[Rfam]
RNA sequence: AAUUAAAAAAGAGGUUGCGGAGAUUAAAAGUAACUGAGGAAGAGGAUGAAGGAUCCGAUGAAGCCCAGUGAAAGGAUGAUCCGCCGAAAUGGUUAGCGUACCUUCUGCGAUAACCGUUGGGUCUUGAAAGAAUAUUUCAAGGACUGUCGCUAUUUUAUAAUAGCGGGGUGCUUUUCAAAUC
Numbered sequence: 001a002a003u004u005a006a007a008a009a010a011g012a013g014g015u016u017g018c019g020g021a022g023a024u025u026a027a028a029a030g031u032a033a034c035u036g037a038g039g040a041a042g043a044g045g046a047u048g049a050a051g052g053a054u055c056c057g058a059u060g061a062a063g064c065c066c067a068g069u070g071a072a073a074g075g076a077u078g079a080u081c082c083g084c085c086g087a088a089a090u091g092g093u094u095a096g097c098g099u100a101c102c103u104u105c106u107g108c109g110a111u112a113a114c115c116g117u118u119g120g121g122u123c124u125u126g127a128a129a130g131a132a133u134a135u136u137u138c139a140a141g142g143a144c145u146g147u148c149g150c151u152a153u154u155u156u157a158u159a160a161u162a163g164c165g166g167g168g169u170g171c172u173u174u175u176c177a178a179a180u181c
Stems, first nucleotide, its partner, number of pairs: 007175005017084005025076001033069004038065002088118008097109003119145002122142008147166007

The family of this 181-nucleotide sequence from Pediococcus stilesii is "Lysine riboswitch aptamer". The organism belongs to Pediococcus, within Bacteria. The match comes from Rfam's covariance-model search (119 bits). The family has 47 seed sequences and 3,224 matches in Rfam 15.1. Gene Ontology term of the family: lysine biosynthetic process. The family's consensus secondary structure is taken from published work.